[Rfam]
RNA sequence: GGUUCGGGAGCUUCGCGGUGGGACGCGGGGCACGAAUGGGACCUCGCCCCUCAUUCGCCUCUUGCGCCGGUCGGGCCCCGACGGUCGGUGU
Numbered sequence: 001g002g003u004u005c006g007g008g009a010g011c012u013u014c015g016c017g018g019u020g021g022g023a024c025g026c027g028g029g030g031c032a033c034g035a036a037u038g039g040g041a042c043c044u045c046g047c048c049c050c051u052c053a054u055u056c057g058c059c060u061c062u063u064g065c066g067c068c069g070g071u072c073g074g075g076c077c078c079c080g081a082c083g084g085u086c087g088g089u090g091u
Base pairs, nucleotide, nucleotide: 001043002042003041004040005039010031011030012029013028014027015026016025017024064091065090066089067088068087069086070085071084072083073082
The record is a 91-nucleotide RNA from Paracoccus aminophilus, which matches "Rhodo-rpoB RNA" in Rfam. The source organism's lineage runs through Bacteria, Pseudomonadati, Rhodobacterales, Paracoccaceae and Paracoccus aminophilus. The family's RNA type in Rfam is cis-regulatory element. Rfam's curators put it in the seed alignment.